[Rfam]
RNA: PyrR binding site
Organism: Bacillus gobiensis
RNA sequence: UUAACCUUUUAAAAAAAGUCCAGUGAGGCUUUAAAGGGUGAAGGAGGCACGUGUAUGCUCUCCUAAAAAGCACCCUAGAGCAAUUUUAGCCCGGGGUGCUUUUUGUA
Numbered sequence: 001u002u003a004a005c006c007u008u009u010u011a012a013a014a015a016a017a018g019u020c021c022a023g024u025g026a027g028g029c030u031u032u033a034a035a036g037g038g039u040g041a042a043g044g045a046g047g048c049a050c051g052u053g054u055a056u057g058c059u060c061u062c063c064u065a066a067a068a069a070g071c072a073c074c075c076u077a078g079a080g081c082a083a084u085u086u087u088a089g090c091c092c093g094g095g096g097u098g099c100u101u102u103u104u105g106u107a
Stems, first nucleotide, its partner, number of pairs: 003039001005037005015032006042064005067102010078092001080090002